This 186-nucleotide sequence from Paenibacillus lutimineralis belongs to the Rfam family "Group II catalytic intron D1-D4-5".
Rfam describes the family as follows. Group II introns are found in rRNA, tRNA and mRNA of organelles in fungi, plants and protists, and also in mRNA in bacteria.
The base pairs follow the family's consensus structure.

[Rfam]
Nucleotides: 186
Base pairs, nucleotide, nucleotide: 018056020055021054022053023052024051032046033045034044057178058177060175067111068110069109070108071102072101073100074099075098077096078095079094080093081092082091083090118174119173120172121171122170126165127164130161131160132151133150140146
Number, partner (000 for none) and nucleotide at each position: 001000c002000c003000u004000a005000a006000c007000u008000u009000u010000g011000c012000a013000a014000c015000u016000u017000a018056g019000u020055g021054a022053u023052g024051g025000g026000a027000a028000c029000g030000a031000g032046g033045g034044a035000u036000c037000c038000a039000c040000g041000u042000a043000u044034u045033c046032c047000a048000a049000a050000a051024c052023c053022a054021u055020c056018c057178c058177g059000a060175c061000a062000a063000u064000a065000c066000u067111c068110c069109u070108g071102c072101g073100u074099g075098c076000g077096u078095u079094g080093c081092g082091a083090u084000g085000g086000a087000c088000a089000g090083a091082u092081u093080g094079c095078a096077g097000g098075g099074u100073g101072c102071g103000a104000a105000g106000c107000a108070c109069a110068g111067g112000u113000g114000g115000a116000g117000u118174c119173g120172g121171c122170a123000g124000a125000a126165c127164g128000a129000a130161g131160g132151c133150u134000a135000a136000a137000g138000c139000c140146a141000c142000u143000c144000a145000u146140u147000a148000a149000g150133a151132g152000a153000a154000g155000g156000u157000a158000u159000g160131c161130c162000a163000a164127c165126g166000g167000a168000u169000a170122u171121g172120c173119c174118g175060g176000g177058c178057g179000g180000c181000u182000g183000a184000a185000a186000a
Rfam links the family to the GO term Group II intron splicing. Lineage of the source: Bacteria > Bacillati > Bacilli > Paenibacillaceae > Paenibacillus.